[Rfam]
RNA sequence: GCAAGACACGCAUUCGUUAUUAUCAUCCUUGUUAUUGAGAUGUUCAUUUGGCCACAAGUAUGUGGCCUUUC
Numbered sequence: 001g002c003a004a005g006a007c008a009c010g011c012a013u014u015c016g017u018u019a020u021u022a023u024c025a026u027c028c029u030u031g032u033u034a035u036u037g038a039g040a041u042g043u044u045c046a047u048u049u050g051g052c053c054a055c056a057a058g059u060a061u062g063u064g065g066c067c068u069u070u071c
Stems, first nucleotide, its partner, number of pairs: 024042004030037002050067007